Description
Purine riboswitch aptamer: a 101-nucleotide RNA from Virgibacillus salarius. The organism belongs to Virgibacillus, within Bacteria. It scores 77 bits against the family's covariance model.

RNA sequence: GACAAAUCAAUAUCGGUUCCUCAUAUAUACCUGAGAAUAAGGCUCAGAAGUUUCUACCCAGCACCGUAAAUGACUGGACUAUGAGGGAAGUUGAAUCGUUG
Numbered sequence: 001g002a003c004a005a006a007u008c009a010a011u012a013u014c015g016g017u018u019c020c021u022c023a024u025a026u027a028u029a030c031c032u033g034a035g036a037a038u039a040a041g042g043c044u045c046a047g048a049a050g051u052u053u054c055u056a057c058c059c060a061g062c063a064c065c066g067u068a069a070a071u072g073a074c075u076g077g078a079c080u081a082u083g084a085g086g087g088a089a090g091u092u093g094a095a096u097c098g099u100u101g
Base pairs, nucleotide, nucleotide: 018087019086020085021084022083023082024081025080031047032046033045034044035043058077059076060075061074062072063071